[Rfam]
RNA sequence: GGUUUAAUGCCACGUUGCCGGUAGCAAUAUAAUUGCCAUGGCCGGCGGUGUCAUGAUUGAACCUAAAUGAAUUUCAUAUUUCGCAUACUGAUAGGAACCUGUUAUGAUAAAUCAACAUUCAUACACAGAGCCGUUUUUUGCGAUUACAUUU
Numbered sequence: 001g002g003u004u005u006a007a008u009g010c011c012a013c014g015u016u017g018c019c020g021g022u023a024g025c026a027a028u029a030u031a032a033u034u035g036c037c038a039u040g041g042c043c044g045g046c047g048g049u050g051u052c053a054u055g056a057u058u059g060a061a062c063c064u065a066a067a068u069g070a071a072u073u074u075c076a077u078a079u080u081u082c083g084c085a086u087a088c089u090g091a092u093a094g095g096a097a098c099c100u101g102u103u104a105u106g107a108u109a110a111a112u113c114a115a116c117a118u119u120c121a122u123a124c125a126c127a128g129a130g131c132c133g134u135u136u137u138u139u140g141c142g143a144u145u146a147c148a149u150u151u
Stems, first nucleotide, its partner, number of pairs: 002062007009054001013050006020043003024036003081143005094132002099128003103123004
Dot-bracket structure: .((((((((...((((((.(((.(((.......)))....))).))))))...).)))))))..................(((((........((...(((.((((.............))))..)))..))......)))))........

A member of the RNA family "Small nucleolar RNA snoR2/U65", 151 nucleotides long. Clan: SNORA65 clan. The family has 11 seed sequences and 908 matches in Rfam 15.1. Pairs were carried over by alignment from the consensus structure, which was predicted with WAR. A search with the family's covariance model found it, with a score of 117 bits.